This 72-nucleotide RNA from Bemisia tabaci belongs to the Rfam family "mir-305 microRNA precursor family". A search with the family's covariance model found it, with a score of 70 bits. The base pairs follow the family's consensus structure, which was predicted with RNAalifold.
RNA sequence: CAUGUUGAUUGUACUUCAUCAGGUGCUCUGGUCUAUUUGUUUCCAGGCAUCCGUUGGAGUGCAAGCCAUAUG
Numbered sequence: 001c002a003u004g005u006u007g008a009u010u011g012u013a014c015u016u017c018a019u020c021a022g023g024u025g026c027u028c029u030g031g032u033c034u035a036u037u038u039g040u041u042u043c044c045a046g047g048c049a050u051c052c053g054u055u056g057g058a059g060u061g062c063a064a065g066c067c068a069u070a071u072g
Stems, first nucleotide, its partner, number of pairs: 001072004010063003014059005020053001023050005030044002
The literature on the family includes a 2010 paper in BMC Genomics by Skalsky et al., "Identification of microRNAs expressed in two mosquito vectors, Aedes albopictus and Culex quinquefasciatus".